[Rfam]
RNA sequence: GCCUCGUGAAUCUGGCCCGGGCACAGAAAGUGCACGUGUGUGUCGACGCCGCCCGCGGUGAGGAUCCGACCGUUGCCGGAAAUGACCUCCGUCUCGGGUCCGACGACGAAGUUCGAUGCACGGCUGUCGUCGAACGUCUGCUCGUCCAUGGUCUCGGGGUUGUACGCCUUGCCGAUCGCGGCGAUCUCGCCGUCGCGCAGCCCGACGUCGGCCUUCACGAUGCCCCAGUGGUCGACGAUGAGUGCGCCGGUGAUCACGGUGUCGACCGGCUUGUGCCGGCUGUCGCGUGCGUAGUGCGACUGCCCCAUCGACUCGCGGAU
Dot-bracket structure: (.(.(((((...((.(.(((..((.......(..((.((((....)))))).)....((.........)).))..))((..(.(((....((((((((((....(((((................................)))).)..))).))))))).))...).)..))....).).)).....(.((...((((..(........((.(((........(........).....))).))....(..(.((..((..................)))))..)....)...))))..)).)........)))))).)
Numbered sequence: 001g002c003c004u005c006g007u008g009a010a011u012c013u014g015g016c017c018c019g020g021g022c023a024c025a026g027a028a029a030g031u032g033c034a035c036g037u038g039u040g041u042g043u044c045g046a047c048g049c050c051g052c053c054c055g056c057g058g059u060g061a062g063g064a065u066c067c068g069a070c071c072g073u074u075g076c077c078g079g080a081a082a083u084g085a086c087c088u089c090c091g092u093c094u095c096g097g098g099u100c101c102g103a104c105g106a107c108g109a110a111g112u113u114c115g116a117u118g119c120a121c122g123g124c125u126g127u128c129g130u131c132g133a134a135c136g137u138c139u140g141c142u143c144g145u146c147c148a149u150g151g152u153c154u155c156g157g158g159g160u161u162g163u164a165c166g167c168c169u170u171g172c173c174g175a176u177c178g179c180g181g182c183g184a185u186c187u188c189g190c191c192g193u194c195g196c197g198c199a200g201c202c203c204g205a206c207g208u209c210g211g212c213c214u215u216c217a218c219g220a221u222g223c224c225c226c227a228g229u230g231g232u233c234g235a236c237g238a239u240g241a242g243u244g245c246g247c248c249g250g251u252g253a254u255c256a257c258g259g260u261g262u263c264g265a266c267c268g269g270c271u272u273g274u275g276c277c278g279g280c281u282g283u284c285g286c287g288u289g290c291g292u293a294g295u296g297c298g299a300c301u302g303c304c305c306c307a308u309c310g311a312c313u314c315g316c317g318g319a320u
Stems, first nucleotide, its partner, number of pairs: 001320001003318001005317005013183002016180001018178001019077002023073002032053001035051002038049004058070002078173002082169001084167001085163002091160007098152003105147001106145004189304001191302002196298004202291001211245002214242003225234001250286001253283001255282002259280002